Shown here is a 137-nucleotide sequence from Aspergillus saccharolyticus, a member of the family "A. fumigatus sRNA Afu_254". Rfam 15.1 lists 185 matches to the family in 142 species. By type it is a small RNA. The match comes from Rfam's covariance-model search (77 bits). The base pairs follow the family's consensus structure, which was predicted with WAR. A reference for the family is Jochl et al. (2008), "Small ncRNA transcriptome analysis from Aspergillus fumigatus suggests a novel mechanism for regulation of protein synthesis", Nucleic Acids Res.
RNA sequence: UCAUCAAUCUACUGUCAAACCCAUCUUUUGAAACGCUUAAAGCCUUCUCUCUAUCAUCAACAUGUCUCCCUGCUCCUGCAACUGCUGCUCUGGCAACUGCUCCAGCUGCUCCUGCAGCUCCUGCAGCGUUGGUCUCC
Numbered sequence: 001u002c003a004u005c006a007a008u009c010u011a012c013u014g015u016c017a018a019a020c021c022c023a024u025c026u027u028u029u030g031a032a033a034c035g036c037u038u039a040a041a042g043c044c045u046u047c048u049c050u051c052u053a054u055c056a057u058c059a060a061c062a063u064g065u066c067u068c069c070c071u072g073c074u075c076c077u078g079c080a081a082c083u084g085c086u087g088c089u090c091u092g093g094c095a096a097c098u099g100c101u102c103c104a105g106c107u108g109c110u111c112c113u114g115c116a117g118c119u120c121c122u123g124c125a126g127c128g129u130u131g132g133u134c135u136c137c
Stems, first nucleotide, its partner, number of pairs: 071095004078088003099124002108115002